[Rfam]
RNA sequence: UGGGCAGUAUCCAUAGUGAACUGCACCUUAAUGAAGUAACCAACAAUUAAAAAAGGUUUCUGCCUAGAUCCGUUUAACGGACCGGGACAGAGGG
Dot-bracket structure: .(((((((.((......))))))).))................................((((((.(.(((.......)))).))).)))....

Rfam assigns this 94-nucleotide RNA to the family "pan motif". The family's consensus secondary structure is taken from published work. The match comes from Rfam's covariance-model search (71 bits).